The record is a 71-nucleotide sequence from Crypturellus undulatus, which matches "Small nucleolar RNA SNORD56" in Rfam. The source organism's lineage runs through Eukaryota, Vertebrata, Dipnotetrapodomorpha, Tinamiformes and Crypturellus. A search with the family's covariance model found it, with a score of 49 bits. The base pairs follow the family's consensus structure, which was predicted with PFOLD.
[Rfam]
RNA sequence: CCGCCGUGAUGGCUACAUUUUUCGUCAGCAGCAUUUCACUGUGUGAAUGGUGACAGCUGUGCUCUGAGCGG
Numbered sequence: 001c002c003g004c005c006g007u008g009a010u011g012g013c014u015a016c017a018u019u020u021u022u023c024g025u026c027a028g029c030a031g032c033a034u035u036u037c038a039c040u041g042u043g044u045g046a047a048u049g050g051u052g053a054c055a056g057c058u059g060u061g062c063u064c065u066g067a068g069c070g071g
Base pairs, nucleotide, nucleotide: 002070003069004068008026009025010024011023